[Rfam]
Nucleotides: 132
Base pairs, nucleotide, nucleotide: 005128006127007126008125009124010123017029018028019027031112032111033102034101035049036048037047038046044100045099052078053077082098083097084096085095086094104115105114106113
Number, partner (000 for none) and nucleotide at each position: 001000u002000u003000a004000c005128g006127u007126u008125c009124u010123c011000a012000g013000g014000g015000c016000g017029g018028g019027g020000u021000g022000c023000a024000a025000u026000u027019c028018c029017c030000c031112a032111c033102c034101g035049g036048c037047g038046g039000u040000u041000a042000c043000a044100g045099c046038c047037c048036g049035c050000g051000a052078g053077c054000g055000c056000c057000u058000u059000c060000c061000c062000g063000g064000u065000u066000g067000g068000g069000a070000a071000g072000g073000g074000u075000c076000a077053g078052c079000a080000g081000a082098u083097c084096c085095g086094g087000u088000g089000a090000a091000a092000u093000u094086c095085c096084g097083g098082g099045g100044c101034c102033g103000a104115c105114g106113g107000u108000a109000u110000a111032g112031u113106c114105c115104g116000g117000a118000u119000g120000g121000a122000a123010g124009a125008g126007a127006a128005u129000c130000g131000u132000g
The record is a 132-nucleotide sequence from Paracoccus caeni, which matches "FMN riboswitch aptamer (RFN element)" in Rfam. From the family's description: The RFN element is a highly conserved domain that is found frequently in the 5'-untranslated regions of prokaryotic mRNAs that encode for flavin mononucleotide (FMN) biosynthesis and transport proteins. Pairs were carried over by alignment from the consensus structure, which is taken from published work. The organism belongs to Paracoccus, within Bacteria.